The record is an 82-nucleotide RNA sequence from Sapajus apella, which matches "mir-130 microRNA precursor family" in Rfam. NCBI's taxonomy places the organism under Eukaryota, Eumetazoa, Gnathostomata, Teleostomi, Sapajus. The base pairs follow the family's consensus structure, which was predicted with PFOLD. The family has 9 seed sequences and 2,580 matches in Rfam 15.1.

RNA sequence: UAGUGCCCAUGUCUCUUUCUAACCCUGCGGUUCUUUCUGCUCCAUGGGAGAACUGCAGGGUUAGCAAGGGACAUGGGCACUA
Numbered sequence: 001u002a003g004u005g006c007c008c009a010u011g012u013c014u015c016u017u018u019c020u021a022a023c024c025c026u027g028c029g030g031u032u033c034u035u036u037c038u039g040c041u042c043c044a045u046g047g048g049a050g051a052a053c054u055g056c057a058g059g060g061u062u063a064g065c066a067a068g069g070g071a072c073a074u075g076g077g078c079a080c081u082a
Stems, first nucleotide, its partner, number of pairs: 001082003005078006012071006019064002023060009